[Rfam]
RNA sequence: AUACUUACCUGGCAAAGGAGAUACCAUGAUAACAAAGGUGGUUUUCCCAAGGCCAGGCUUAUCCAUUACACUCCAGAUGUGCUGACCCCUGUAAUUUCCCCAAAUGUGGGAAACUCAACUGCAUAAUUUGUGGUAAUGGGGGAGUGCAUUGGUAUUUUCCCCUG
Numbered sequence: 001a002u003a004c005u006u007a008c009c010u011g012g013c014a015a016a017g018g019a020g021a022u023a024c025c026a027u028g029a030u031a032a033c034a035a036a037g038g039u040g041g042u043u044u045u046c047c048c049a050a051g052g053c054c055a056g057g058c059u060u061a062u063c064c065a066u067u068a069c070a071c072u073c074c075a076g077a078u079g080u081g082c083u084g085a086c087c088c089c090u091g092u093a094a095u096u097u098c099c100c101c102a103a104a105u106g107u108g109g110g111a112a113a114c115u116c117a118a119c120u121g122c123a124u125a126a127u128u129u130g131u132g133g134u135a136a137u138g139g140g141g142g143a144g145u146g147c148a149u150u151g152g153u154a155u156u157u158u159c160c161c162c163u164g
Base pairs, nucleotide, nucleotide: 012122013121014120017047018046019045020044021043023042024041025040026039027038049090051088052087056083057082058081060079061078062077063076092117094115095113096112097111099109100108138163139162140161141160142159143158146155148153